[Rfam]
RNA sequence: GGCGCCUACCUUGCGAAGGUAGACGCC
Numbered sequence: 001g002g003c004g005c006c007u008a009c010c011u012u013g014c015g016a017a018g019g020u021a022g023a024c025g026c027c
Base pairs, nucleotide, nucleotide: 001027002026003025004024006022007021008020009019010018011017
The family of this 27-nucleotide RNA from Alphavirus sindbis is "ribosomal frameshift site". It is one of the family's seed sequences. Its family is annotated with viral translational frameshifting in the Gene Ontology. The base pairs follow the family's consensus structure, which is taken from published work. The literature on the family includes a 2009 paper in Virol J by Firth et al., "Bioinformatic evidence for a stem-loop structure 5'-adjacent to the IGR-IRES and for an overlapping gene in the bee paralysis dicistroviruses". By type it is a frameshift element. NCBI's taxonomy places the organism under Viruses, Riboviria, Kitrinoviricota, Alsuviricetes, Alphavirus sindbis.